[Rfam]
The family of this 420-nucleotide RNA sequence from Corynebacterium doosanense is "Bacterial RNase P class A".
Pairs were carried over by alignment from the consensus structure, which is taken from published work.
Nucleotides: 420
Base pairs, nucleotide, nucleotide: 001416002415003414004413005412006411007410008409009408010407011405012372013371014370015369016368018366020064021063022062023061025059026058027057069403070402071401073400074399075398076397077396078253079252080251081250085309086308087307088306090249091248092247093246094245095109096108097107098106099105110124111122112121113120114119125244126243130242131241132238133237147182148181149178150177151176152175153174154173155172156171157170190208191207192206193205194204195203210233211231212230213229214228215227217226218225219224257329258328259327289321290320291319292318293317294316301313302312303311304310336356337355338354339353340352341350342349343348
Number, partner (000 for none) and nucleotide at each position: 001416u002415g003414a004413g005412u006411g007410g008409g009408c010407c011405g012372g013371g014370u015369g016368a017000u018366c019000g020064c021063g022062g023061c024000g025059u026058u027057u028000u029000c030000c031000g032000a033000a034000c035000c036000g037000c038000c039000c040000c041000u042000g043000c044000a045000a046000c047000a048000g049000g050000g051000g052000c053000a054000g055000g056000c057027g058026g059025g060000a061023g062022u063021c064020g065000a066000g067000g068000a069403a070402a071401g072000u073400c074399c075398g076397g077396a078253c079252u080251c081250c082000g083000c084000a085309g086308g087307g088306c089000a090249c091248g092247g093246u094245g095109g096108u097107u098106g099105c100000u101000a102000a103000c104000g105099g106098c107097a108096a109095c110124c111122c112121g113120g114119g115000g116000c117000g118000a119114c120113c121112c122111g123000a124110g125244g126243g127000c128000a129000a130242g131241u132238g133237c134000a135000a136000c137000a138000g139000a140000g141000a142000g143000u144000a145000g146000a147182c148181c149178g150177c151176c152175u153174c154173c155172u156171u157170c158000a159000g160000c161000u162000u163000u164000c165000g166000g167000g168000c169000c170157g171156g172155g173154g174153g175152a176151g177150g178149u179000a180000a181148g182147g183000g184000u185000g186000a187000a188000a189000g190208g191207g192206u193205g194204c195203g196000g197000u198000a199000a200000g201000a202000g203195c204194g205193c206192a207191c208190c209000g210233g211231c212230g213229g214228c215227g216000u217226c218225a219224g220000g221000u222000g223000a224219c225218u226217g227215c228214g229213c230212c231211g232000g233210c234000c235000a236000g237133g238132u239000a240000a241131a242130c243126c244125c245094c246093a247092c248091c249090g250081g251080g252079a253078g254000c255000a256000a257329g258328g259327c260000a261000a262000a263000a264000c265000g266000g267000c268000u269000c270000g271000c272000a273000c274000a275000c276000a277000g278000u279000g280000c281000g282000c283000g284000c285000c286000a287000g288000a289321u290320c291319g292318g293317g294316c295000g296000u297000u298000c299000g300000a301313g302312g303311g304310c305000u306088g307087c308086c309085c310304g311303c312302c313301c314000g315000a316294g317293u318292c319291c320290g321289a322000a323000g324000g325000u326000a327259g328258c329257u330000g331000c332000u333000u334000g335000a336356g337355g338354c339353g340352c341350c342349c343348a344000g345000c346000a347000a348343u349342g350341g351000u352340g353339c354338g355337u356336c357000c358000a359000g360000a361000u362000g363000g364000a365000u366018g367000u368016u369015c370014a371013c372012c373000g374000c375000c376000c377000u378000c379000c380000c381000c382000g383000c384000g385000a386000g387000g388000g389000c390000a391000c392000a393000g394000a395000a396077u397076c398075c399074g400073g401071c402070u403069u404000a405011c406000a407010g408009g409008c410007c411006c412005a413004c414003u415002c416001a417000u418000u419000c420000g